[Rfam]
Rfam assigns this 238-nucleotide RNA from Rhodonia placenta to the family "Group I catalytic intron". Group I catalytic introns are large self-splicing ribozymes. They catalyse their own excision from mRNA, tRNA and rRNA precursors in a wide range of organisms. A search with the family's covariance model found it, with a score of 86 bits. The base pairs follow the family's consensus structure, which is taken from published work. For this family Rfam cites "Self-splicing of group I introns" (Cech, Annu Rev Biochem, 1990).
RNA sequence: UUUUUAAUCUAAACUUUUGUCGCUUUAAUUAGUAAUAAUUAUUGAAAAAUUGGGUUAAUUUCAAGAAAAUCUCUAAGGAGAAUACCUGAAGCGAAGCUAGUUUCGACAUAAAAUUGGAACUAGAACGUUCAACGACUAGUGGGUGAGUUCUGUCAACAAUAACCCCACCACGAAAGCCCGACAACUCUUGAUAAAAAAAGAGUUGGUGAUAUAGUCUGAACCAAUUUGUGAAAAUUGG
Numbered sequence: 001u002u003u004u005u006a007a008u009c010u011a012a013a014c015u016u017u018u019g020u021c022g023c024u025u026u027a028a029u030u031a032g033u034a035a036u037a038a039u040u041a042u043u044g045a046a047a048a049a050u051u052g053g054g055u056u057a058a059u060u061u062c063a064a065g066a067a068a069a070u071c072u073c074u075a076a077g078g079a080g081a082a083u084a085c086c087u088g089a090a091g092c093g094a095a096g097c098u099a100g101u102u103u104c105g106a107c108a109u110a111a112a113a114u115u116g117g118a119a120c121u122a123g124a125a126c127g128u129u130c131a132a133c134g135a136c137u138a139g140u141g142g143g144u145g146a147g148u149u150c151u152g153u154c155a156a157c158a159a160u161a162a163c164c165c166c167a168c169c170a171c172g173a174a175a176g177c178c179c180g181a182c183a184a185c186u187c188u189u190g191a192u193a194a195a196a197a198a199a200g201a202g203u204u205g206g207u208g209a210u211a212u213a214g215u216c217u218g219a220a221c222c223a224a225u226u227u228g229u230g231a232a233a234a235u236u237g238g
Base pairs, nucleotide, nucleotide: 006025007024009022011020013018030038050181051180052179053178055176056175060090061089062088063087065085070081071080072079073078091128092127102118103117104116105115106114132217134216135215136214137213138212184203185202186201187200188199189198223236224235225234226233227232